[Rfam]
RNA sequence: ACUUCAAUGAUGAAAACAAACCCAGCUCGCUGAUCCUGUUUGAUGGAGAAAAAACAGCUGAGAAGU
Numbered sequence: 001a002c003u004u005c006a007a008u009g010a011u012g013a014a015a016a017c018a019a020a021c022c023c024a025g026c027u028c029g030c031u032g033a034u035c036c037u038g039u040u041u042g043a044u045g046g047a048g049a050a051a052a053a054a055c056a057g058c059u060g061a062g063a064a065g066u
Stems, first nucleotide, its partner, number of pairs: 001066005
RNA: Small nucleolar RNA sn3060
Organism: Auanema sp. JU1783